[Rfam]
RNA sequence: AGAGGUUCCAAGUUGGUAAGCCAUAGCAGAAAUGCUCUUGGCAUGGCCUGUCAGGUUCCAACACAUCUGUGAAUUCUGUU
Numbered sequence: 001a002g003a004g005g006u007u008c009c010a011a012g013u014u015g016g017u018a019a020g021c022c023a024u025a026g027c028a029g030a031a032a033u034g035c036u037c038u039u040g041g042c043a044u045g046g047c048c049u050g051u052c053a054g055g056u057u058c059c060a061a062c063a064c065a066u067c068u069g070u071g072a073a074u075u076c077u078g079u080u
Stems, first nucleotide, its partner, number of pairs: 016048001020047003025080007032044003052069005
The family of this 80-nucleotide sequence from Alligator mississippiensis is "Mammalian CPEB3 ribozyme".
Lineage of the source: Eukaryota > Chordata > Teleostomi > Alligatorinae > Alligator.